The family of this 131-nucleotide RNA from Carlito syrichta is "Small nucleolar RNA SNORA38".
Rfam classes the family as an H/ACA-box small nucleolar RNA.
The source organism's lineage runs through Eukaryota, Bilateria, Teleostomi, Mammalia and Carlito.
Pairs were carried over by alignment from the consensus structure, which was predicted with RNAfold.
Rfam's curators write: ACA38 is a member of the H/ACA class of snoRNA that guide the sites of modification of uridines to pseudouridines.
It scores 114 bits against the family's covariance model.

RNA sequence: CCCUCCUUCAAAGGCAUGUCUGUAGUUCCUUGUCUCUGGUUGUGUAAGAAUUGAAAGCAAAGAAAUGUGAAUAGGGAGAUGUCUGGAGCCAGCUUGUUCCCUGCGGGCUCAAGAUCAACCAUCCCACAUGG
Numbered sequence: 001c002c003c004u005c006c007u008u009c010a011a012a013g014g015c016a017u018g019u020c021u022g023u024a025g026u027u028c029c030u031u032g033u034c035u036c037u038g039g040u041u042g043u044g045u046a047a048g049a050a051u052u053g054a055a056a057g058c059a060a061a062g063a064a065a066u067g068u069g070a071a072u073a074g075g076g077a078g079a080u081g082u083c084u085g086g087a088g089c090c091a092g093c094u095u096g097u098u099c100c101c102u103g104c105g106g107g108c109u110c111a112a113g114a115u116c117a118a119c120c121a122u123c124c125c126a127c128a129u130g131g
Stems, first nucleotide, its partner, number of pairs: 002057001004055001006053001015044004020039002024030002069124001071122001091109007